[Rfam]
DUF805b RNA: a 37-nucleotide RNA from marine bacterium AO1-C. It is annotated as a cis-regulatory element. The family is grouped with related families in Rfam's "DUF805 clan". A search with the family's covariance model found it, with a score of 37 bits. The source organism's lineage runs through Bacteria, Pseudomonadati, Bacteroidota, Cytophagales and Cytophagaceae.

RNA sequence: AAGGGGGAUGCUGAAAACCCUUUAACCAGAGUAAGCA
Numbered sequence: 001a002a003g004g005g006g007g008a009u010g011c012u013g014a015a016a017a018c019c020c021u022u023u024a025a026c027c028a029g030a031g032u033a034a035g036c037a
Base pairs, nucleotide, nucleotide: 002021003020004019005018010036011035012034